[Rfam]
RNA sequence: AGAGCACGGCGGUCGCGUGCCAAGGGAACCGGGGAACCAACUUUUGGGGUGAAUCGGGCCGAGCCAGGCCCGUAGGAGACCUUCCUGCUCCGAACCCGUCAGCUAACCCGGUAGGCGAGAAGGAAGGAAAGG
Numbered sequence: 001a002g003a004g005c006a007c008g009g010c011g012g013u014c015g016c017g018u019g020c021c022a023a024g025g026g027a028a029c030c031g032g033g034g035a036a037c038c039a040a041c042u043u044u045u046g047g048g049g050u051g052a053a054u055c056g057g058g059c060c061g062a063g064c065c066a067g068g069c070c071c072g073u074a075g076g077a078g079a080c081c082u083u084c085c086u087g088c089u090c091c092g093a094a095c096c097c098g099u100c101a102g103c104u105a106a107c108c109c110g111g112u113a114g115g116c117g118a119g120a121a122g123g124a125a126g127g128a129a130a131g132g
Base pairs, nucleotide, nucleotide: 028112029111030110031109032108033107038046039045047097048096049095055072056071057070058069075091076090077089078088
RNA: c-di-AMP riboswitch aptamer (ydaO/yuaA leader)
Organism: Streptomyces zagrosensis